Shown here is a 91-nucleotide RNA from Alkaliphilus oremlandii, a member of the family "pan motif". The base pairs follow the family's consensus structure, which is taken from published work. A search with the family's covariance model found it, with a score of 46 bits.

RNA sequence: UAGCUGGUAUCAAUUUUUGAGCUAGACUAAUUUUCAUUGUUUUAAAAAAAAUUAAAUUGUCCGGCAUCUUUCAAAAGAGCUGGAACGGAGG
Numbered sequence: 001u002a003g004c005u006g007g008u009a010u011c012a013a014u015u016u017u018u019g020a021g022c023u024a025g026a027c028u029a030a031u032u033u034u035c036a037u038u039g040u041u042u043u044a045a046a047a048a049a050a051a052u053u054a055a056a057u058u059g060u061c062c063g064g065c066a067u068c069u070u071u072c073a074a075a076a077g078a079g080c081u082g083g084a085a086c087g088g089a090g091g
Stems, first nucleotide, its partner, number of pairs: 001029003004025005010020002058087003061083005067078003
NCBI's taxonomy places the organism under Bacteria, Bacillati, Peptostreptococcales, Natronincolaceae, Alkaliphilus oremlandii.
It is annotated as a cis-regulatory element.